[Rfam]
RNA sequence: CACGCAGUAUAUUUUUGUGCUUUGUGUAUUUCAAUAAUCAUAUCACAGGAUUAUACUGUGAG
Numbered sequence: 001c002a003c004g005c006a007g008u009a010u011a012u013u014u015u016u017g018u019g020c021u022u023u024g025u026g027u028a029u030u031u032c033a034a035u036a037a038u039c040a041u042a043u044c045a046c047a048g049g050a051u052u053a054u055a056c057u058g059u060g061a062g
Base pairs, nucleotide, nucleotide: 001062003060004059005058006057007056008055009054010053011052013050014049015048016047017046018045019044021042023040024039
Rfam assigns this 62-nucleotide RNA sequence from Ceratitis capitata to the family "mir-308 microRNA precursor family". The organism belongs to Ceratitis, within Eukaryota.